This 54-nucleotide RNA sequence from Triplophysa tibetana belongs to the Rfam family "UnaL2 LINE 3' element". Pairs were carried over by alignment from the consensus structure, which is taken from published work. Its family is annotated with transposition, RNA-mediated in the Gene Ontology. The eel long interspersed element (LINE) UnaL2 and its partner short interspersed element (SINE) share a conserved 3' tail containing a stem-loop that is critical for their retrotransposition.
[Rfam]
RNA sequence: UGCUUCCUUAUCUGUAAAUCACUUUGGAUAAAAGCGUCUGCUAAAUGACUAAAU
Numbered sequence: 001u002g003c004u005u006c007c008u009u010a011u012c013u014g015u016a017a018a019u020c021a022c023u024u025u026g027g028a029u030a031a032a033a034g035c036g037u038c039u040g041c042u043a044a045a046u047g048a049c050u051a052a053a054u
Base pairs, nucleotide, nucleotide: 013043014041015040016039020036022034023033024032025031